The family of this 120-nucleotide RNA sequence from Mesobacillus boroniphilus is "epsC RNA".
Pairs were carried over by alignment from the consensus structure, which is taken from published work.
A search with the family's covariance model found it, with a score of 100 bits.
Rfam classes the family as a cis-regulatory element.
RNA sequence: CGGCGAUGCCUCCUACCCGUUACCCAUGGAGGCACUCGAUCAUGCUGUGGGAUGCUGGAAAAGCAGGCCUUAGACACGUAAGUUGUCGAUAGCAUGGUGUGAGGGCGGGUUAGAUGCCCA
Dot-bracket structure: [[[...(((((((...]]]........)))))))((((((((((((..(((.((((.....))).).)))..((((.......))))...)))))))).))))...((((.....)))).
Numbered sequence: 001c002g003g004c005g006a007u008g009c010c011u012c013c014u015a016c017c018c019g020u021u022a023c024c025c026a027u028g029g030a031g032g033c034a035c036u037c038g039a040u041c042a043u044g045c046u047g048u049g050g051g052a053u054g055c056u057g058g059a060a061a062a063g064c065a066g067g068c069c070u071u072a073g074a075c076a077c078g079u080a081a082g083u084u085g086u087c088g089a090u091a092g093c094a095u096g097g098u099g100u101g102a103g104g105g106c107g108g109g110u111u112a113g114a115u116g117c118c119c120a
Stems, first nucleotide, its partner, number of pairs: 001019003007034007035103004039098008049070003053066001054064003073087004107119004